RNA: Molybdenum/Tungsten riboswitch aptamer (Moco RNA motif)
RNA sequence: AAUAGUUAGUAACUCCGAAUUUGGCAGUCUAAUGGAAACUACGGCAGCCAAAUCGAUGGGUUUACCGGGAAAUUGGUAAGCCUCCCGUUGCGGAAAGGAGUCAGUGCUAUCUUUU
Numbered sequence: 001a002a003u004a005g006u007u008a009g010u011a012a013c014u015c016c017g018a019a020u021u022u023g024g025c026a027g028u029c030u031a032a033u034g035g036a037a038a039c040u041a042c043g044g045c046a047g048c049c050a051a052a053u054c055g056a057u058g059g060g061u062u063u064a065c066c067g068g069g070a071a072a073u074u075g076g077u078a079a080g081c082c083u084c085c086c087g088u089u090g091c092g093g094a095a096a097g098g099a100g101u102c103a104g105u106g107c108u109a110u111c112u113u114u115u
Base pairs, nucleotide, nucleotide: 003109004108006106012101013100014099015098016097019053020052021051022050023049024048025047027045028044029043034039058083059082060081061080062079063078064077065076066075067074068073084093085092